The record is a 31-nucleotide RNA sequence from Columba livia, which matches "Iron response element II" in Rfam.
IRE, TFRC, SLC40A1, SDHB, SLC11A2, CDC42BPA, ACO2, ALAS2_H.SAPIENS, CDC14A, EPAS1, ALAS2, qoxD, Hao1, NDUFS1, transferrin, Aconitate.
Rfam classes the family as a cis-regulatory element.
Lineage of the source: Eukaryota > Gnathostomata > Sarcopterygii > Neognathae > Columba.

[Rfam]
RNA sequence: GUUAUAUCGGAGGCAGUGACCUCCAUAUGUU
Numbered sequence: 001g002u003u004a005u006a007u008c009g010g011a012g013g014c015a016g017u018g019a020c021c022u023c024c025a026u027a028u029g030u031u
Base pairs, nucleotide, nucleotide: 001031003029004028005027006026007025009024010023011022012021013020014018